[Rfam]
The family of this 168-nucleotide RNA sequence from Calothrix sp. PCC 7507 is "Ribosomal protein L10 leader". Rfam classes the family as a cis-regulatory leader. The organism belongs to Calothrix, within Bacteria. The family's consensus secondary structure was predicted with CMfinder. From the family's description: This family is a putative r-protein leader autoregulatory structure found in B. subtilis and other low-GC Gram-positive bacteria. It scores 68 bits against the family's covariance model.
RNA sequence: CUAAUUGAAUAAAUCAAGCCGGAGACAGCAGGUGCAUAUCGCUUAAUAUCCUGCCGAGGUUGAAACCCUGAAUACUCAAAGUGACGCUUGUAAAACUGCGAUCGCUAAGGUAUGAAGAGUAAUACCACUAAACCCCGGCUAAAGCAGCUGGGGUUUGUUGUUUGGAUU
Number, nucleotide and partner (000 for none) at each position: 001c000002u000003a000004a000005u000006u000007g000008a000009a000010u000011a000012a000013a000014u000015c000016a000017a000018g000019c000020c000021g000022g000023a000024g000025a000026c000027a000028g054029c053030a052031g051032g050033u000034g042035c041036a000037u000038a000039u000040c000041g035042c034043u000044u000045a000046a000047u000048a000049u000050c032051c031052u030053g029054c028055c000056g000057a000058g000059g000060u000061u000062g000063a000064a000065a000066c000067c000068c000069u000070g000071a000072a000073u000074a000075c000076u000077c000078a000079a000080a000081g000082u000083g000084a000085c000086g000087c000088u000089u000090g000091u000092a000093a000094a000095a000096c000097u000098g000099c000100g000101a000102u000103c000104g000105c000106u000107a000108a000109g000110g000111u000112a000113u000114g000115a000116a000117g000118a000119g000120u000121a000122a000123u000124a000125c000126c000127a000128c000129u000130a000131a000132a000133c153134c152135c151136c150137g149138g148139c147140u146141a000142a000143a000144g000145c000146a140147g139148c138149u137150g136151g135152g134153g133154u000155u000156u000157g000158u000159u000160g000161u000162u000163u000164g000165g000166a000167u000168u000